Shown here is a 112-nucleotide RNA sequence from Solanum commersonii, a member of the family "MIR394 microRNA precursor family". The organism belongs to Solanum, within Eukaryota. The match comes from Rfam's covariance-model search (91 bits). Rfam 15.1 lists 724 matches to the family in 216 species. The base pairs follow the family's consensus structure, which was predicted with WAR. Gene Ontology terms of the family: RISC complex and miRNA-mediated post-transcriptional gene silencing.
RNA sequence: CUUACAGAGUUCAUUGGCAUUCUGUCCACCUCCCUCGUUCUUUUUUCGAAAAAAGGAGGAGGAAAGCAAGAUUAGUGUGGAGGUGGGCAUACUGCCAAUAGAGCUGUGUUGG
Numbered sequence: 001c002u003u004a005c006a007g008a009g010u011u012c013a014u015u016g017g018c019a020u021u022c023u024g025u026c027c028a029c030c031u032c033c034c035u036c037g038u039u040c041u042u043u044u045u046u047c048g049a050a051a052a053a054a055g056g057a058g059g060a061g062g063a064a065a066g067c068a069a070g071a072u073u074a075g076u077g078u079g080g081a082g083g084u085g086g087g088c089a090u091a092c093u094g095c096c097a098a099u100a101g102a103g104c105u106g107u108g109u110u111g112g
Stems, first nucleotide, its partner, number of pairs: 011102001014098006023089011
For this family Rfam cites "Computational identification of plant microRNAs and their targets, including a stress-induced miRNA" (Jones-Rhoades and Bartel, Mol Cell, 2004).